[Rfam]
RNA sequence: UUUGUGAUUCAAAUUAAAACAUGAACACAUUUUUAAAUACAGCUUGGUGGUGGAACAACUUACGUCAGUCGUCGUGAGCUAGCUACCUAUAGUUAUAUUUUUCAAAAUAUUUAAAAGGGCUUGUC
Numbered sequence: 001u002u003u004g005u006g007a008u009u010c011a012a013a014u015u016a017a018a019a020c021a022u023g024a025a026c027a028c029a030u031u032u033u034u035a036a037a038u039a040c041a042g043c044u045u046g047g048u049g050g051u052g053g054a055a056c057a058a059c060u061u062a063c064g065u066c067a068g069u070c071g072u073c074g075u076g077a078g079c080u081a082g083c084u085a086c087c088u089a090u091a092g093u094u095a096u097a098u099u100u101u102u103c104a105a106a107a108u109a110u111u112u113a114a115a116a117g118g119g120c121u122u123g124u125c
Base pairs, nucleotide, nucleotide: 036099037098038097041094042093043092044091047088049087050086051085052084057080059078060077062072063071064070
The record is a 125-nucleotide RNA from Flavobacterium orientale, which matches "Bacteroidete tryptophan peptide leader RNA" in Rfam. Lineage of the source: Bacteria > Pseudomonadati > Flavobacteriales > Flavobacteriaceae > Flavobacterium. Rfam classes the family as a cis-regulatory leader.